[Rfam]
RNA sequence: GCCCGGAGACCGCUCACUCACGAGAACACGUACGGCAGGAGCGGGGGACCCAGGUAAGUCGCCGUACCGGGAUGUCUUCGGACAGAACCGGCACGGCUCGGGGUGAAGUCAUGCCUUUUCGGCAUGGCCGGGCAACUCCCGCCCGAACCCGACAGCUCACCUCGCAGGCGCCGGAGAGGAAAUUC
Numbered sequence: 001g002c003c004c005g006g007a008g009a010c011c012g013c014u015c016a017c018u019c020a021c022g023a024g025a026a027c028a029c030g031u032a033c034g035g036c037a038g039g040a041g042c043g044g045g046g047g048a049c050c051c052a053g054g055u056a057a058g059u060c061g062c063c064g065u066a067c068c069g070g071g072a073u074g075u076c077u078u079c080g081g082a083c084a085g086a087a088c089c090g091g092c093a094c095g096g097c098u099c100g101g102g103g104u105g106a107a108g109u110c111a112u113g114c115c116u117u118u119u120c121g122g123c124a125u126g127g128c129c130g131g132g133c134a135a136c137u138c139c140c141g142c143c144c145g146a147a148c149c150c151g152a153c154a155g156c157u158c159a160c161c162u163c164g165c166a167g168g169c170g171c172c173g174g175a176g177a178g179g180a181a182a183u184u185c
Stems, first nucleotide, its partner, number of pairs: 011170004018040002041165006051100001101150003109127004130144004
RNA: c-di-AMP riboswitch aptamer (ydaO/yuaA leader)